[Rfam]
RNA sequence: UGGGGGUUAUGCAGCCUCCCCGUCUCAAGACGCCGGCGUCCAAGGUCUGC
Numbered sequence: 001u002g003g004g005g006g007u008u009a010u011g012c013a014g015c016c017u018c019c020c021c022g023u024c025u026c027a028a029g030a031c032g033c034c035g036g037c038g039u040c041c042a043a044g045g046u047c048u049g050c
Stems, first nucleotide, its partner, number of pairs: 001022006011050004029040004
This 50-nucleotide sequence from Rugosibacter aromaticivorans belongs to the Rfam family "chrB-b RNA". The source organism's lineage runs through Bacteria, Pseudomonadati, Pseudomonadota, Nitrosomonadales and Rugosibacter. A search with the family's covariance model found it, with a score of 48 bits. By type it is a cis-regulatory element.